The family of this 140-nucleotide RNA sequence from Hyphomicrobium facile is "Alphaproteobacterial sRNA BjrC1505".
[Rfam]
RNA sequence: GUUUCACUUAACUGAACUUUAAGCAUAUCCGGCCAUUUUGAGACUCGAUCCAGGCCAUCUGGAUAAAAGCGGUCCCUCUGCCGCUUGUUGACGCCUCACUGUUGACCUUCGAGCCGCUCUUUGAGGGCGGCUCUUUUUUU
Numbered sequence: 001g002u003u004u005c006a007c008u009u010a011a012c013u014g015a016a017c018u019u020u021a022a023g024c025a026u027a028u029c030c031g032g033c034c035a036u037u038u039u040g041a042g043a044c045u046c047g048a049u050c051c052a053g054g055c056c057a058u059c060u061g062g063a064u065a066a067a068a069g070c071g072g073u074c075c076c077u078c079u080g081c082c083g084c085u086u087g088u089u090g091a092c093g094c095c096u097c098a099c100u101g102u103u104g105a106c107c108u109u110c111g112a113g114c115c116g117c118u119c120u121u122u123g124a125g126g127g128c129g130g131c132u133c134u135u136u137u138u139u140u
Stems, first nucleotide, its partner, number of pairs: 001044004005014002015037002020035001024031001048064004068085005090103004111133009
The base pairs follow the family's consensus structure.
It is annotated as a small RNA.
The literature on the family includes a 2012 paper in RNA Biol by Madhugiri et al., "Small RNAs of the Bradyrhizobium/Rhodopseudomonas lineage and their analysis".